[Rfam]
RNA sequence: UUCUUAUCCAGAGCGACUGAGGGACAGGCCCUUUGACGUCGCGGCAACCCCCCAUGGGAAGGUGCCAAUUCCUGCGAAACCAUCGGUUUCGGGAGAUAAGGA
Numbered sequence: 001u002u003c004u005u006a007u008c009c010a011g012a013g014c015g016a017c018u019g020a021g022g023g024a025c026a027g028g029c030c031c032u033u034u035g036a037c038g039u040c041g042c043g044g045c046a047a048c049c050c051c052c053c054a055u056g057g058g059a060a061g062g063u064g065c066c067a068a069u070u071c072c073u074g075c076g077a078a079a080c081c082a083u084c085g086g087u088u089u090c091g092g093g094a095g096a097u098a099a100g101g102a
Stems, first nucleotide, its partner, number of pairs: 001102008013042005021031003025074004043066004048062002050058003070094001075091006
Dot-bracket structure: ((((((((....(((((...(((.[[[[)))......)))))((((.(((((...)))..))))))...(]]]]((((((.....))))))..)))))))))
A member of the RNA family "SAM riboswitch aptamer (S box leader)" from Geobacter argillaceus, 102 nucleotides long. Taxonomically the source falls in Geobacter (Bacteria, Pseudomonadati, Geobacterales, Geobacteraceae).